[Rfam]
RNA sequence: UGGAAAUGAUGAAACAGAGAUAAUUGGGUGUUGAAUGUUGUAUGGUUGAAUAUUUUCAAUAAAUAAUUUGAUUAUUAGUCUAAUGUUUUAUGUAAUAGUGUGCAUGAGUGUGUGUGUGUGCGUGCAUGUGGGGGCUAUGGAAAGGGGGCACUGACUGGUGAUGCUGAUAUUGGAGUGCAUCUGAGGCUGUUGUAGAAACACAUGGGUGCUGAUUAUAACAUCGCCGAUGAUUAUAACCCAAGAACAGCUCACCUGACCAGCCUAGCACCCUAAAAUCUCUAACAGGUUCAUUAAACAUGGUCCUGUGAUCUGAUCCAA
Numbered sequence: 001u002g003g004a005a006a007u008g009a010u011g012a013a014a015c016a017g018a019g020a021u022a023a024u025u026g027g028g029u030g031u032u033g034a035a036u037g038u039u040g041u042a043u044g045g046u047u048g049a050a051u052a053u054u055u056u057c058a059a060u061a062a063a064u065a066a067u068u069u070g071a072u073u074a075u076u077a078g079u080c081u082a083a084u085g086u087u088u089u090a091u092g093u094a095a096u097a098g099u100g101u102g103c104a105u106g107a108g109u110g111u112g113u114g115u116g117u118g119u120g121c122g123u124g125c126a127u128g129u130g131g132g133g134g135c136u137a138u139g140g141a142a143a144g145g146g147g148g149c150a151c152u153g154a155c156u157g158g159u160g161a162u163g164c165u166g167a168u169a170u171u172g173g174a175g176u177g178c179a180u181c182u183g184a185g186g187c188u189g190u191u192g193u194a195g196a197a198a199c200a201c202a203u204g205g206g207u208g209c210u211g212a213u214u215a216u217a218a219c220a221u222c223g224c225c226g227a228u229g230a231u232u233a234u235a236a237c238c239c240a241a242g243a244a245c246a247g248c249u250c251a252c253c254u255g256a257c258c259a260g261c262c263u264a265g266c267a268c269c270c271u272a273a274a275a276u277c278u279c280u281a282a283c284a285g286g287u288u289c290a291u292u293a294a295a296c297a298u299g300g301u302c303c304u305g306u307g308a309u310c311u312g313a314u315c316c317a318a
Stems, first nucleotide, its partner, number of pairs: 001317004188220008197210001199208003